[Rfam]
RNA: mir-1388 microRNA precursor family
Organism: Salarias fasciatus
RNA sequence: UCCUGAGUGGUUCUUUCGAGGACUGUCCAACCUGAGAAUGGUGAUUUGGGGCUCAAUCUCAGGUUUGUCAGCCCAUGAAAUGCCAUCUCGCG
Numbered sequence: 001u002c003c004u005g006a007g008u009g010g011u012u013c014u015u016u017c018g019a020g021g022a023c024u025g026u027c028c029a030a031c032c033u034g035a036g037a038a039u040g041g042u043g044a045u046u047u048g049g050g051g052c053u054c055a056a057u058c059u060c061a062g063g064u065u066u067g068u069c070a071g072c073c074c075a076u077g078a079a080a081u082g083c084c085a086u087c088u089c090g091c092g
Stems, first nucleotide, its partner, number of pairs: 005089003008085004014080004020074002023071003027067001029065009039055002